[Rfam]
Shown here is a 132-nucleotide RNA sequence from Chromatocurvus halotolerans, a member of the family "ALIL pseudoknot".
RNA sequence: GGCUUAUUUUGCCCAGGCGGAGCUCGACGGGCAGGCCUUCCUGCGCCGACCGAAGUGAUGGUGUCGUUCAUCGACCAGCAUCGAGACAGCUACGGGGUCGAGCCGAUCUGCAAGGAACUGCCGAUCGCCCCG
Numbered sequence: 001g002g003c004u005u006a007u008u009u010u011g012c013c014c015a016g017g018c019g020g021a022g023c024u025c026g027a028c029g030g031g032c033a034g035g036c037c038u039u040c041c042u043g044c045g046c047c048g049a050c051c052g053a054a055g056u057g058a059u060g061g062u063g064u065c066g067u068u069c070a071u072c073g074a075c076c077a078g079c080a081u082c083g084a085g086a087c088a089g090c091u092a093c094g095g096g097g098u099c100g101a102g103c104c105g106a107u108c109u110g111c112a113a114g115g116a117a118c119u120g121c122c123g124a125u126c127g128c129c130c131c132g
Stems, first nucleotide, its partner, number of pairs: 016047004093132005104127002107124002110121003
Rfam classes the family as a cis-regulatory element.